[Rfam]
RNA sequence: UGGCGGACCACGCCUAAUCGCCGUGCCAGCGGCGUACCGGGGAUCCGUGUAACUGGGGUGAAGCCGUGCGUAACCACGGCCGGACGCGCUUCCCGUCCGAACCCGUCAGCUAACCCGGUCGGCGGCCUGACGGAAGAAAG
Numbered sequence: 001u002g003g004c005g006g007a008c009c010a011c012g013c014c015u016a017a018u019c020g021c022c023g024u025g026c027c028a029g030c031g032g033c034g035u036a037c038c039g040g041g042g043a044u045c046c047g048u049g050u051a052a053c054u055g056g057g058g059u060g061a062a063g064c065c066g067u068g069c070g071u072a073a074c075c076a077c078g079g080c081c082g083g084a085c086g087c088g089c090u091u092c093c094c095g096u097c098c099g100a101a102c103c104c105g106u107c108a109g110c111u112a113a114c115c116c117g118g119u120c121g122g123c124g125g126c127c128u129g130a131c132g133g134a135a136g137a138a139a140g
Stems, first nucleotide, its partner, number of pairs: 011124004019034006036119006046055002056104003064079004082098004
Dot-bracket structure: ..........((((....((((((....)))))).((((((....((......))(((.....((((........))))..((((.........))))...))).........)))))).))))................
The record is a 140-nucleotide sequence from Actinoplanes sp. TBRC 11911, which matches "c-di-AMP riboswitch aptamer (ydaO/yuaA leader)" in Rfam. It scores 81 bits against the family's covariance model. Taxonomically the source falls in Actinoplanes (Bacteria, Actinomycetota, Actinomycetes, Micromonosporales).